Notes: The record is a 70-nucleotide RNA sequence from Equus caballus, which matches "Small nucleolar RNA SNORD113/SNORD114 family" in Rfam. A reference for the family is Cavaille et al. (2002), "Identification of tandemly-repeated C/D snoRNA genes at the imprinted human 14q32 domain reminiscent of those at the Prader-Willi/Angelman syndrome region", Hum Mol Genet. About the family: The imprinted human domain at 14q32 contains two clusters of tandemly repeated small nucleolar RNAs named 14q(I) and 14q(II) snoRNAs. By type it is a C/D-box small nucleolar RNA. Clan: SNORD74 clan.
[Rfam]
RNA sequence: UGGAUCGAUGAUGACUACUGGUGGCGUACGAGUCGUAGAUGAUGAAUACGUGUCUGGAACUGAGGUCCAA
Numbered sequence: 001u002g003g004a005u006c007g008a009u010g011a012u013g014a015c016u017a018c019u020g021g022u023g024g025c026g027u028a029c030g031a032g033u034c035g036u037a038g039a040u041g042a043u044g045a046a047u048a049c050g051u052g053u054c055u056g057g058a059a060c061u062g063a064g065g066u067c068c069a070a
Stems, first nucleotide, its partner, number of pairs: 002068005